[Rfam]
This 128-nucleotide sequence from Serilophus lunatus belongs to the Rfam family "Small nucleolar RNA SNORA71". About the family: The members of this family belong to the H/ACA class of snoRNAs which bind a number of proteins (including dyskerin, Gar1p and Nop10p) to form snoRNP complexes. This class of snoRNAs are thought to guide the sites of modification of uridines to pseudouridines by forming direct base pairing interactions with substrate RNAs. This family includes U71 (SNORA71), ACA39 (SNORA39) and ACA60 (SNORA60). U71 and ACA60 are predicted to guide the pseudouridylation of U406 and U1004 in 18S rRNA respectively. There is currently no target RNA identified for ACA39. It scores 102 bits against the family's covariance model. Its family is annotated with nucleolus and RNA processing in the Gene Ontology.
RNA sequence: CCCUGCAUUCGAAAGUGAUCACGGUCCCGCCCGUGGCCGGGUCAUCGAUAGUGCAGGGAGAGGAGCGCGAGAGCUUUCCCGUGUUUGGGGGGGUGUCCGUCCCCCCCAGACUCUGUUGCUGUCGGACA
Number, nucleotide and partner (000 for none) at each position: 001c058002c057003c056004u055005g054006c053007a052008u051009u050010c000011g000012a000013a000014a000015g045016u044017g043018a042019u041020c040021a000022c000023g038024g037025u036026c035027c000028c000029g000030c000031c000032c000033g000034u000035g026036g025037c024038c023039g000040g020041g019042u018043c017044a016045u015046c000047g000048a000049u000050a009051g008052u007053g006054c005055a004056g003057g002058g001059a000060g000061a000062g000063g000064a000065g000066c125067g000068c124069g123070a122071g000072a120073g119074c118075u000076u000077u000078c000079c000080c000081g000082u000083g111084u110085u109086u108087g107088g105089g104090g103091g102092g101093g000094u000095g000096u000097c000098c000099g000100u000101c092102c091103c090104c089105c088106c000107c087108a086109g085110a084111c083112u000113c000114u000115g000116u000117u000118g074119c073120u072121g000122u070123c069124g068125g066126a000127c000128a000